[Rfam]
RNA sequence: GUGGCUUCUGAUUUUGAUUUAAUUUAUGCCUGCACUUUUCAUGUGUUUGCAAUGUUUAAUUGAAGCCUAUAAUUGCGUUCCCCUCGCUAUCCACUACUGCAAUUAUGAUGUUGUAAUUGGACGUCGGGGAACAAAAUCU
Numbered sequence: 001g002u003g004g005c006u007u008c009u010g011a012u013u014u015u016g017a018u019u020u021a022a023u024u025u026a027u028g029c030c031u032g033c034a035c036u037u038u039u040c041a042u043g044u045g046u047u048u049g050c051a052a053u054g055u056u057u058a059a060u061u062g063a064a065g066c067c068u069a070u071a072a073u074u075g076c077g078u079u080c081c082c083c084u085c086g087c088u089a090u091c092c093a094c095u096a097c098u099g100c101a102a103u104u105a106u107g108a109u110g111u112u113g114u115a116a117u118u119g120g121a122c123g124u125c126g127g128g129g130a131a132c133a134a135a136a137u138c139u
Base pairs, nucleotide, nucleotide: 001070002069003067004066005065008062011061013059016057017056019054027051028050029049031045034044035043077132078131079130080129081128082127083126085123086122090121091120092119093118099111100110101109
RNA: Small nucleolar RNA snoR136
Organism: Medicago truncatula